[Rfam]
RNA sequence: AGGGAAAGAAGACCCUAUUAAGCUUAACUUUAGUUUGAUAUUAUAAAAAGAUAUAAGAGGUGUAGAAUAGAUAGAAGCUUUAGCGCUAGUAAAAUACCACUACUCCUAUUGUUUUUUUACUUAUUUAAUAAAGUAGGGCUAGAUUUACGUCUAACUUCUAGUUUUAAAGUCCUUUACAAGCUAACCUAAGUUAAAAAUAUUAUUAGGUGGGGAGUUUAGCUAAAGCAGUAUAUCUAUUAAACUAUAACGCAGGUAUCUUAAGGGGGGCUUAUAGAGAAUAGAAAUCUCUAGUAGAACAAAAGGGUAAAAGUCCCCUUAAUUUUGAUUUUUAGUAUAAAUAUAAACUAUAAAAGUGUAGCCUAUUAAUCCUUUAGUCUCUUAAAAUUUAAGGCUAGAGGUGCUAGAAAAGUUACUAUAGGGAUAACUAGCUUAUAGCAGCUAAGCGUUUAUAGUAAUAUUACUUUUUAAUCUUUUAAUAUUAGCUCUUCCUAUUAUACUAAAGUAGAAUUUAGUAAGCAUUAGAUUAUUUACCUACUAAUAGGGAAUAUAAGCUAGGUUUAAACUGUUAUAAGAUAGGUUAGUUUUACCCU
Numbered sequence: 001a002g003g004g005a006a007a008g009a010a011g012a013c014c015c016u017a018u019u020a021a022g023c024u025u026a027a028c029u030u031u032a033g034u035u036u037g038a039u040a041u042u043a044u045a046a047a048a049a050g051a052u053a054u055a056a057g058a059g060g061u062g063u064a065g066a067a068u069a070g071a072u073a074g075a076a077g078c079u080u081u082a083g084c085g086c087u088a089g090u091a092a093a094a095u096a097c098c099a100c101u102a103c104u105c106c107u108a109u110u111g112u113u114u115u116u117u118u119a120c121u122u123a124u125u126u127a128a129u130a131a132a133g134u135a136g137g138g139c140u141a142g143a144u145u146u147a148c149g150u151c152u153a154a155c156u157u158c159u160a161g162u163u164u165u166a167a168a169g170u171c172c173u174u175u176a177c178a179a180g181c182u183a184a185c186c187u188a189a190g191u192u193a194a195a196a197a198u199a200u201u202a203u204u205a206g207g208u209g210g211g212g213a214g215u216u217u218a219g220c221u222a223a224a225g226c227a228g229u230a231u232a233u234c235u236a237u238u239a240a241a242c243u244a245u246a247a248c249g250c251a252g253g254u255a256u257c258u259u260a261a262g263g264g265g266g267g268c269u270u271a272u273a274g275a276g277a278a279u280a281g282a283a284a285u286c287u288c289u290a291g292u293a294g295a296a297c298a299a300a301a302g303g304g305u306a307a308a309a310g311u312c313c314c315c316u317u318a319a320u321u322u323u324g325a326u327u328u329u330u331a332g333u334a335u336a337a338a339u340a341u342a343a344a345c346u347a348u349a350a351a352a353g354u355g356u357a358g359c360c361u362a363u364u365a366a367u368c369c370u371u372u373a374g375u376c377u378c379u380u381a382a383a384a385u386u387u388a389a390g391g392c393u394a395g396a397g398g399u400g401c402u403a404g405a406a407a408a409g410u411u412a413c414u415a416u417a418g419g420g421a422u423a424a425c426u427a428g429c430u431u432a433u434a435g436c437a438g439c440u441a442a443g444c445g446u447u448u449a450u451a452g453u454a455a456u457a458u459u460a461c462u463u464u465u466u467a468a469u470c471u472u473u474u475a476a477u478a479u480u481a482g483c484u485c486u487u488c489c490u491a492u493u494a495u496a497c498u499a500a501a502g503u504a505g506a507a508u509u510u511a512g513u514a515a516g517c518a519u520u521a522g523a524u525u526a527u528u529u530a531c532c533u534a535c536u537a538a539u540a541g542g543g544a545a546u547a548u549a550a551g552c553u554a555g556g557u558u559u560a561a562a563c564u565g566u567u568a569u570a571a572g573a574u575a576g577g578u579u580a581g582u583u584u585u586a587c588c589c590u
Base pairs, nucleotide, nucleotide: 002590003589004588006585007584014419015418016417017416019415020414021411022410023409024408025407027215028214029213030212034207035206036205037204038203039202040201044119045118046117047116048115049114050113051112052111053109054108055107057105058104059103070101072099074097077084078083124195125194126193127192128191134188135187136186137185142151143150168182169181170180218231219229220228221227232254233253234252235251237249257358258357263315264314265313266312267311268310269295270294272290273289274288275287276286277285296305297304320344321343322342325339326338327337328336346355347354348353369397370396371395372394373393374392377391378390379389380388428469430467432466434462435461437459438458443453444452480555481553482552483551484550486544487543488542489541490540493518496513497512498511499510500509501508520534521533522532524530561579562578563577564576565574566573567572